The record is an 80-nucleotide sequence from Theobroma umbraticum, which matches "Small nucleolar RNA R160" in Rfam. The source organism's lineage runs through Eukaryota, Magnoliopsida, Pentapetalae, Malvales and Theobroma. For this family Rfam cites "The high diversity of snoRNAs in plants: identification and comparative study of 120 snoRNA genes from Oryza sativa" (Chen et al., Nucleic Acids Res, 2003). The family has 9 seed sequences and 799 matches in Rfam 15.1. It is annotated as a C/D-box small nucleolar RNA. Rfam's curators write: snoR160 is a C/D box small nucleolar RNA, which acts as a methylation guide for 25S ribosomal RNA in plants. snoR160 has been alternatively named snoZ270 in rice.
RNA sequence: AGCAAAAUGAUGAAAGUUGUUUAGAAUCUGAAUCGCCGUGUGGGAACCCCACCCUGGGUCUUCAAAGUUCUCUGAUUGCU
Numbered sequence: 001a002g003c004a005a006a007a008u009g010a011u012g013a014a015a016g017u018u019g020u021u022u023a024g025a026a027u028c029u030g031a032a033u034c035g036c037c038g039u040g041u042g043g044g045a046a047c048c049c050c051a052c053c054c055u056g057g058g059u060c061u062u063c064a065a066a067g068u069u070c071u072c073u074g075a076u077u078g079c080u
Stems, first nucleotide, its partner, number of pairs: 001080005